[Rfam]
RNA sequence: GCGGUACCGGUUCACGUCCCGGACCGGACGACCCGGCGACC
Numbered sequence: 001g002c003g004g005u006a007c008c009g010g011u012u013c014a015c016g017u018c019c020c021g022g023a024c025c026g027g028a029c030g031a032c033c034c035g036g037c038g039a040c041c
Stems, first nucleotide, its partner, number of pairs: 003041003007036004015030005

A member of the RNA family "L31-Actinobacteria ribosomal protein leader", 41 nucleotides long. The family's consensus secondary structure is taken from published work. By type it is a cis-regulatory leader.